[Rfam]
RNA: M-box riboswitch aptamer (ykoK leader)
Organism: Propionispira arboris
RNA sequence: UAUAGAUUCCGUUAGGUGAGGUUCCUGUAUGAACACAGGCCACUGCCCCGAAACAUCGAGAGAUGCCAACGGGUAGAACAGGUAUUAUCGACAUAAGGUAUUACUUAAGGUGGCUGAGAAUUAUUUGACUCUACGUUGUGCAGUGCUAAAACUUGAACGAUUGGGAAGGCUU
Numbered sequence: 001u002a003u004a005g006a007u008u009c010c011g012u013u014a015g016g017u018g019a020g021g022u023u024c025c026u027g028u029a030u031g032a033a034c035a036c037a038g039g040c041c042a043c044u045g046c047c048c049c050g051a052a053a054c055a056u057c058g059a060g061a062g063a064u065g066c067c068a069a070c071g072g073g074u075a076g077a078a079c080a081g082g083u084a085u086u087a088u089c090g091a092c093a094u095a096a097g098g099u100a101u102u103a104c105u106u107a108a109g110g111u112g113g114c115u116g117a118g119a120a121u122u123a124u125u126u127g128a129c130u131c132u133a134c135g136u137u138g139u140g141c142a143g144u145g146c147u148a149a150a151a152c153u154u155g156a157a158c159g160a161u162u163g164g165g166a167a168g169g170c171u172u
Base pairs, nucleotide, nucleotide: 007166008165009164010163011158012157013096015153016152017151020147021146022145025143026142027141028140029139030138031137032136039114040113041112042111043110045074046073047072048071054065055064056063057062081105082104083103084102087099088098089097116131117130118129